[Rfam]
RNA sequence: GGGGACCUUCGGGGCCCUUCAACUGGCCGGGCGGGACACCGUCCGCAAAGCAACGGAAAGACAGAGAA
Number, nucleotide and partner (000 for none) at each position: 001g018002g017003g016004g015005a000006c014007c013008u012009u000010c000011g000012g008013g007014g006015c004016c003017c002018u001019u000020c000021a000022a000023c000024u000025g000026g000027c000028c000029g044030g043031g042032c041033g040034g039035g000036a000037c000038a000039c034040c033041g032042u031043c030044c029045g000046c000047a000048a000049a000050g000051c000052a000053a000054c000055g000056g000057a000058a000059a000060g000061a000062c000063a000064g000065a000066g000067a000068a000